[Rfam]
RNA sequence: ACUAUUAGUCUAAGAAAGUCCUAUAAUAGUAAAGCAGUAGCUAGUCUACCCCCCCCUCUAUAACACUUAGGGGGAAGCAAGCGAAACACCUAGAUAUAGGGAAGUACUUAAGGUUAACGCUAGUAACCUAUAGGAGUUAAUAGCCCUAUAGUUAAGUCUAAUUACUAAGACUACUAAUAAUAUAUUGAAUAGAGAUAAUCUGCAGCUAACUAAGGCUAUACUAAAAUCCUUAACUUAGGAUGAAGGGCUUUAGUAGUUUAACGCUUAAUAAAGUGUUAGUAGGGGAGGAUAUAUUUUUAGAAGUAUUCUAUUCCUACUUAAGGUAUAAGCUACGCUUACCUAAGAGGGUGCUAUAUCUACUAGCUACGUUAGCUGAGAAGUAUAGAGCAGGCUACUAUAUGUAGCUUAUAGGUAUUAUAGAACUAGCUUAUAGCAGCUAAGCGUUUAUAGUAAUAUUACUUUUUAAUCCUUUAAUAUUAGCUCUUCCUAUUAUACUAAAGCAGAAUUUAGUAAACGUUAGAUUAUUUACCUACUAAUAGGGAACGUAAGCUAGGUUUAGACUGUUAUAAGAUAGGUUAGUU
Dot-bracket structure: (.(...(((................................................................................................................................................................................................................................................................................................................................................................................................................................................................)))....).)..........(((((((((((..(..((((((......))))))....).(((.(.....).))).....)))))..)..)))).).....(((((((....))).))))....